[Rfam]
Description
The record is a 184-nucleotide RNA from Thermogemmatispora tikiterensis, which matches "FMN riboswitch aptamer (RFN element)" in Rfam. Rfam describes the family as follows. The RFN element is a highly conserved domain that is found frequently in the 5'-untranslated regions of prokaryotic mRNAs that encode for flavin mononucleotide (FMN) biosynthesis and transport proteins. This element is a metabolite-dependent riboswitch that directly binds FMN in the absence of proteins. In Bacillus subtilis, the riboswitch most likely controls gene expression by causing premature transcription termination within the 5' untranslated region of the ribDEAHT operon and precluding access to the ribosome-binding site of ypaA mRNA.The FMN riboswitch structure, reported in present an FMN-bound six-stem junction, adopts a butterfly-like scaffold, stapled together by opposingly directed but nearly identically folded peripheral domains.
RNA sequence: CGCUGUCUUCGGGGCAGGGUGAGGGAGACGGGCCGGCGCUCAACAACAGGGGCGACGGUCUCUCCCAAUUCCCGAUCGGCGGUAUAGCCCGUACGCCCUUGCGCUCGCUGUCGCAUGGCAGCGUGAGGGCAUGACCUGGGGAAGUUCCAGGGCCGACGGUAUAGUCCGAUAGGAGAAGACUGAC
Numbered sequence: 001c002g003c004u005g006u007c008u009u010c011g012g013g014g015c016a017g018g019g020u021g022a023g024g025g026a027g028a029c030g031g032g033c034c035g036g037c038g039c040u041c042a043a044c045a046a047c048a049g050g051g052g053c054g055a056c057g058g059u060c061u062c063u064c065c066c067a068a069u070u071c072c073c074g075a076u077c078g079g080c081g082g083u084a085u086a087g088c089c090c091g092u093a094c095g096c097c098c099u100u101g102c103g104c105u106c107g108c109u110g111u112c113g114c115a116u117g118g119c120a121g122c123g124u125g126a127g128g129g130c131a132u133g134a135c136c137u138g139g140g141g142a143a144g145u146u147c148c149a150g151g152g153c154c155g156a157c158g159g160u161a162u163a164g165u166c167c168g169a170u171a172g173g174a175g176a177a178g179a180c181u182g183a184c
Stems, first nucleotide, its partner, number of pairs: 003182001005180006017073003075165002077155002079092004087153002097129004135151005157168003